[Rfam]
RNA sequence: CCGUGGGACACCUCUCCCCAACGAGAGGCGCUUAUCUGGAAGGGUAGCAUCA
Numbered sequence: 001c002c003g004u005g006g007g008a009c010a011c012c013u014c015u016c017c018c019c020a021a022c023g024a025g026a027g028g029c030g031c032u033u034a035u036c037u038g039g040a041a042g043g044g045u046a047g048c049a050u051c052a
Stems, first nucleotide, its partner, number of pairs: 011028006032047006

This 52-nucleotide RNA belongs to the Rfam family "serC leader". This family is a putative regulatory RNA structure that is found upstream of the serC-serA operon in some alpha-proteobacteria. The final stem of the structure overlaps the ribosome binding site of the serC reading frame. A reference for the family is Corbino et al. (2005), "Evidence for a second class of S-adenosylmethionine riboswitches and other regulatory RNA motifs in alpha-proteobacteria", Genome Biol.